Pyrobac-1 RNA: a 62-nucleotide sequence from Pyrobaculum aerophilum. The source organism's lineage runs through Archaea, Thermoproteati, Thermoproteales, Thermoproteaceae and Pyrobaculum aerophilum. Pairs were carried over by alignment from the consensus structure, which is taken from published work.

RNA sequence: UGUGCCGGGACUACGCCGGGUGAGAGCGGCGUGUGCCGCCCUGUGAAUCCGGCGGGGUGCCU
Numbered sequence: 001u002g003u004g005c006c007g008g009g010a011c012u013a014c015g016c017c018g019g020g021u022g023a024g025a026g027c028g029g030c031g032u033g034u035g036c037c038g039c040c041c042u043g044u045g046a047a048u049c050c051g052g053c054g055g056g057g058u059g060c061c062u
Stems, first nucleotide, its partner, number of pairs: 011055001014054008026039005

It is one of the family's seed sequences.
Rfam classes the family as a small RNA.
The motif has been shown by to be part of sRNA202 and sRNA203 canonical and noncanonical pseudouridine guide RNA (H/ACA RNA).